[Rfam]
RNA sequence: AAGUAUUACAGCUCUUUUAGAAUUUGUCUAGCUUGUUCCAAGUCUUCUCUGGAAGCACAC
Number, nucleotide and partner (000 for none) at each position: 001a000002a000003g000004u000005a000006u000007u000008a000009c000010a000011g000012c000013u000014c000015u000016u000017u000018u000019a000020g000021a000022a000023u000024u000025u000026g000027u000028c000029u000030a000031g000032c000033u000034u057035g056036u055037u054038c052039c051040a050041a048042g047043u000044c000045u000046u000047c042048u041049c000050u040051g039052g038053a000054a037055g036056c035057a034058c000059a000060c000
Rfam assigns this 60-nucleotide RNA sequence from Cebus imitator to the family "U7 small nuclear RNA". The literature on the family includes a 1994 paper in Nucleic Acids Res by Spycher et al., "3' end processing of mouse histone pre-mRNA: evidence for additional base-pairing between U7 snRNA and pre-mRNA". The source organism's lineage runs through Eukaryota, Dipnotetrapodomorpha, Euarchontoglires, Cebinae and Cebus. From the family's description: Animal histone pre-mRNAs are spliced by a different mechanism than nuclear pre-mRNAs and self-splicing introns. The match comes from Rfam's covariance-model search (49 bits).